A member of the RNA family "chrB-a RNA" from Afipia sp. P52-10, 84 nucleotides long. The match comes from Rfam's covariance-model search (68 bits).

RNA sequence: CUCAAGGGGUUGAUCGCGAUUACCCCGUGAGGCGGCAGCCCAAACAUCGCGUCCAUACUCCCAAUCACGGGAUGGACGCUCAUG
Numbered sequence: 001c002u003c004a005a006g007g008g009g010u011u012g013a014u015c016g017c018g019a020u021u022a023c024c025c026c027g028u029g030a031g032g033c034g035g036c037a038g039c040c041c042a043a044a045c046a047u048c049g050c051g052u053c054c055a056u057a058c059u060c061c062c063a064a065u066c067a068c069g070g071g072a073u074g075g076a077c078g079c080u081c082a083u084g
Stems, first nucleotide, its partner, number of pairs: 006026005049079006